The record is a 64-nucleotide RNA sequence from Tothia fuscella, which matches "bZIP non canonical Hac1/Xbp1 intron" in Rfam. It scores 42 bits against the family's covariance model. Lineage of the source: Eukaryota > Fungi > Dikarya > dothideomyceta > Tothia. On this family, see Iracane et al., mSphere 2018: "Identification of an Exceptionally Long Intron in the HAC1 Gene of Candida parapsilosis". The family's consensus secondary structure was predicted with RNAfold. Rfam describes the family as follows. bZIP intron RNA is a non-canonical intron that was first reported in HAC1 gene in yeast and XBP1 gene in Metazoa.
[Rfam]
RNA sequence: GAAUCCGACGUGACACAACAUUCUGCUGUAAUGUUGUGGGACCUGCAGUGUCCGUCGGUUAUUC
Numbered sequence: 001g002a003a004u005c006c007g008a009c010g011u012g013a014c015a016c017a018a019c020a021u022u023c024u025g026c027u028g029u030a031a032u033g034u035u036g037u038g039g040g041a042c043c044u045g046c047a048g049u050g051u052c053c054g055u056c057g058g059u060u061a062u063u064c
Stems, first nucleotide, its partner, number of pairs: 001064004006057005017035006040052003